[Rfam]
RNA sequence: GCUCCGCCCUAGCAGCACGUAAAUAUUGGUGUAGUAAAAUAAACCUUAAACCCCAAUAUUAUUGUGCUGCUUAAGCGUGGC
Numbered sequence: 001g002c003u004c005c006g007c008c009c010u011a012g013c014a015g016c017a018c019g020u021a022a023a024u025a026u027u028g029g030u031g032u033a034g035u036a037a038a039a040u041a042a043a044c045c046u047u048a049a050a051c052c053c054c055a056a057u058a059u060u061a062u063u064g065u066g067c068u069g070c071u072u073a074a075g076c077g078u079g080g081c
Stems, first nucleotide, its partner, number of pairs: 001081003005077003010074001011071008020061001022060008
RNA: mir-16 microRNA precursor family